Description:
The family of this 61-nucleotide RNA from Devosia epidermidihirudinis is "terC RNA". The base pairs follow the family's consensus structure, which is taken from published work. A search with the family's covariance model found it, with a score of 63 bits.
RNA sequence: GUGCGGCGCCGGGCCCCUCUGGCGAGAGUGACUUAUACUCUCGUGAUGUCGGAGCUGCUCC
Numbered sequence: 001g002u003g004c005g006g007c008g009c010c011g012g013g014c015c016c017c018u019c020u021g022g023c024g025a026g027a028g029u030g031a032c033u034u035a036u037a038c039u040c041u042c043g044u045g046a047u048g049u050c051g052g053a054g055c056u057g058c059u060c061c
Stems, first nucleotide, its partner, number of pairs: 006055002009052004022044008